RNA sequence: CGCCCAUCGGGCGAUGGGGUCCGCCUUUCACAACCGCUGGGCAGCCAGCUGAUGACUCCUCCCGGAGA
Numbered sequence: 001c002g003c004c005c006a007u008c009g010g011g012c013g014a015u016g017g018g019g020u021c022c023g024c025c026u027u028u029c030a031c032a033a034c035c036g037c038u039g040g041g042c043a044g045c046c047a048g049c050u051g052a053u054g055a056c057u058c059c060u061c062c063c064g065g066a067g068a
Stems, first nucleotide, its partner, number of pairs: 010025004016059006036049004
Shown here is a 68-nucleotide sequence, a member of the family "Fluoride riboswitch aptamer (crcB RNA motif)". Rfam 15.1 lists 2,293 matches to the family in 1,982 species.